This 117-nucleotide RNA from Microbacterium esteraromaticum belongs to the Rfam family "SAM (S-adenosyl methionine) riboswitch aptamer".
The source organism's lineage runs through Bacteria, Bacillati, Actinomycetes, Micrococcales and Microbacterium.
RNA sequence: GUUCAAGAGUUGCAGCCAUCGGUACCUGGCCGGCUGCACGGCAACCCUCCUCCAUCGAGCGGGGUGCCCCAGGGGAAGAACCGGCCCGACGCACUCGCGUGCGGGCAAGUCGAUGGG
Numbered sequence: 001g002u003u004c005a006a007g008a009g010u011u012g013c014a015g016c017c018a019u020c021g022g023u024a025c026c027u028g029g030c031c032g033g034c035u036g037c038a039c040g041g042c043a044a045c046c047c048u049c050c051u052c053c054a055u056c057g058a059g060c061g062g063g064g065u066g067c068c069c070c071a072g073g074g075g076a077a078g079a080a081c082c083g084g085c086c087c088g089a090c091g092c093a094c095u096c097g098c099g100u101g102c103g104g105g106c107a108a109g110u111c112g113a114u115g116g117g
Stems, first nucleotide, its partner, number of pairs: 001081004009039001011038006021031002040068003045064003049059001050057001084106005089100004